[Rfam]
RNA sequence: UAGUCCGCGAGGAUGCGUGCGGAGGGCUUGAAGGCAAACCCCGGAGCAGGCGGCUAAACCAAGUUGGUCAACGAGAUCGGAUAACCCUGCACAAAAAGGGGAUGUCCAAUACCACCACUGAUCUUGUAGGUUAGGAGGAUUGGAUUCGGGGGAAAGCCGGUGAC
Numbered sequence: 001u002a003g004u005c006c007g008c009g010a011g012g013a014u015g016c017g018u019g020c021g022g023a024g025g026g027c028u029u030g031a032a033g034g035c036a037a038a039c040c041c042c043g044g045a046g047c048a049g050g051c052g053g054c055u056a057a058a059c060c061a062a063g064u065u066g067g068u069c070a071a072c073g074a075g076a077u078c079g080g081a082u083a084a085c086c087c088u089g090c091a092c093a094a095a096a097a098g099g100g101g102a103u104g105u106c107c108a109a110u111a112c113c114a115c116c117a118c119u120g121a122u123c124u125u126g127u128a129g130g131u132u133a134g135g136a137g138g139a140u141u142g143g144a145u146u147c148g149g150g151g152g153a154a155a156g157c158c159g160g161u162g163a164c
Stems, first nucleotide, its partner, number of pairs: 003014004028163003034157002039151006047142003059138002067131003071127007079107004085100004
The record is a 164-nucleotide RNA from Cohnella fermenti, which matches "Group II catalytic intron D1-D4-3" in Rfam. Group II introns are found in rRNA, tRNA and mRNA of organelles in fungi, plants and protists, and also in mRNA in bacteria. The organism belongs to Cohnella, within Bacteria. The base pairs follow the family's consensus structure. It scores 48 bits against the family's covariance model.